[Rfam]
RNA sequence: UUGUUGACAAGGCAAACCUAUGGAAACAUAGGGACUGCAAAGCCAUGGUCUAAGGCAUUUUGAACAGAUGCCAGUGUAGACUGGUUACCGGG
Numbered sequence: 001u002u003g004u005u006g007a008c009a010a011g012g013c014a015a016a017c018c019u020a021u022g023g024a025a026a027c028a029u030a031g032g033g034a035c036u037g038c039a040a041a042g043c044c045a046u047g048g049u050c051u052a053a054g055g056c057a058u059u060u061u062g063a064a065c066a067g068a069u070g071c072c073a074g075u076g077u078a079g080a081c082u083g084g085u086u087a088c089c090g091g092g
Stems, first nucleotide, its partner, number of pairs: 012038002017032006041086004047081001048077002055071006